A member of the RNA family "mir-80 microRNA precursor family" from Caenorhabditis briggsae, 89 nucleotides long. Lineage of the source: Eukaryota > Opisthokonta > Ecdysozoa > Nematoda > Caenorhabditis. Rfam's curators put it in the seed alignment.
Nucleotides: 089
Stems, first nucleotide, its partner, number of pairs: 002088003007082003011078002014075009023064005029059002032056007
Number, partner (000 for none) and nucleotide at each position: 001000a002088c003087u004086c005000u006000u007082u008081c009080g010000c011078u012077c013000a014075g015074c016073u017072u018071u019070c020069g021068a022067c023064a024063u025062g026061a027060u028000u029059c030058u031000a032056a033055a034054c035053a036052a037051u038050a039000c040000g041000c042000u043000g044000u045000c046000g047000c048000a049000a050038u051037g052036u053035u054034g055033u056032u057000g058030a059029g060027a061026u062025c063024a064023u065000u066000a067022g068021u069020u070019g071018a072017a073016a074015g075014c076000c077012g078011a079000a080009c081008g082007a083000u084000u085000c086004g087003a088002g089000a